[Rfam]
RNA sequence: GGGAAUGGAUGGGUUCUGGUGUUCCCUCUGGUCUUCAAAACCAGUACGAGGAGUUAAGAGCUUCUUGGGUGGGUUCGAUUCCCACACUUUCCC
Numbered sequence: 001g002g003g004a005a006u007g008g009a010u011g012g013g014u015u016c017u018g019g020u021g022u023u024c025c026c027u028c029u030g031g032u033c034u035u036c037a038a039a040a041c042c043a044g045u046a047c048g049a050g051g052a053g054u055u056a057a058g059a060g061c062u063u064c065u066u067g068g069g070u071g072g073g074u075u076c077g078a079u080u081c082c083c084a085c086a087c088u089u090u091c092c093c
Base pairs, nucleotide, nucleotide: 001093002092003091004090005089007087008085011026012025013024016021028044029043030042031041032040047067048066049065050064051063070084071083072082073081
This 93-nucleotide RNA from Vagococcus zengguangii belongs to the Rfam family "Selenocysteine transfer RNA".
The family has 109 seed sequences and 4,211 matches in Rfam 15.1.
It scores 69 bits against the family's covariance model.
The family's consensus secondary structure is taken from published work.